[Rfam]
RNA sequence: CGAAAUCUUAUAACCUCCACAGGGCCUUCAGCAAGACCCACAGGUAACAAUUUUUGGGAACCCUUGCAAGAGCAAGGGCG
Numbered sequence: 001c002g003a004a005a006u007c008u009u010a011u012a013a014c015c016u017c018c019a020c021a022g023g024g025c026c027u028u029c030a031g032c033a034a035g036a037c038c039c040a041c042a043g044g045u046a047a048c049a050a051u052u053u054u055u056g057g058g059a060a061c062c063c064u065u066g067c068a069a070g071a072g073c074a075a076g077g078g079c080g
Stems, first nucleotide, its partner, number of pairs: 022039003026035003061078007
Dot-bracket structure: .....................(((.(((....))).))).....................(((((((....)))))))..